[Rfam]
RNA sequence: CUGGUCUGAGGGGACGCGAGGAUCUCCCUCGCCGCCGCUUCGGCCAGUGCCUCAGGCCAGGCCCUGACAAGCUGCCCCAGGGGAGGCUCUUCGGAGCCAGACCUGGACCCUUGCGCCUGCCUCCUGCUCUCCUGCCUCUGGUCUCACGAGGGGUUUCCCGCCUCGCACCCCCACCUCUGGACGUGCCUUUCCUCCCCUCCCCGCGUGUGGAGGGAGCCAGCGCUUAGGCCGGAGCGAGCCUGGGGGCUGCCGGCCGUGAAGGCAUCGCGGGGACCGAUUCGCCAUG
Numbered sequence: 001c002u003g004g005u006c007u008g009a010g011g012g013g014a015c016g017c018g019a020g021g022a023u024c025u026c027c028c029u030c031g032c033c034g035c036c037g038c039u040u041c042g043g044c045c046a047g048u049g050c051c052u053c054a055g056g057c058c059a060g061g062c063c064c065u066g067a068c069a070a071g072c073u074g075c076c077c078c079a080g081g082g083g084a085g086g087c088u089c090u091u092c093g094g095a096g097c098c099a100g101a102c103c104u105g106g107a108c109c110c111u112u113g114c115g116c117c118u119g120c121c122u123c124c125u126g127c128u129c130u131c132c133u134g135c136c137u138c139u140g141g142u143c144u145c146a147c148g149a150g151g152g153g154u155u156u157c158c159c160g161c162c163u164c165g166c167a168c169c170c171c172c173a174c175c176u177c178u179g180g181a182c183g184u185g186c187c188u189u190u191c192c193u194c195c196c197c198u199c200c201c202c203g204c205g206u207g208u209g210g211a212g213g214g215a216g217c218c219a220g221c222g223c224u225u226a227g228g229c230c231g232g233a234g235c236g237a238g239c240c241u242g243g244g245g246g247c248u249g250c251c252g253g254c255c256g257u258g259a260a261g262g263c264a265u266c267g268c269g270g271g272g273a274c275c276g277a278u279u280c281g282c283c284a285u286g
Base pairs, nucleotide, nucleotide: 001013002012016032017031018030019029020028021027034062035061036060083156084155085154087153129150130149131148133146184219185218187216188215189214190213197210198209230253232251234250235249236248
Shown here is a 286-nucleotide sequence from Camelus bactrianus, a member of the family "HIF-1 alpha IRES". Taxonomically the source falls in Camelus (Eukaryota, Chordata, Laurasiatheria, Artiodactyla). The base pairs follow the family's consensus structure, which was predicted with RNAfold. Rfam classes the family as an internal ribosome entry site. Rfam links the family to the GO term ribosome binding.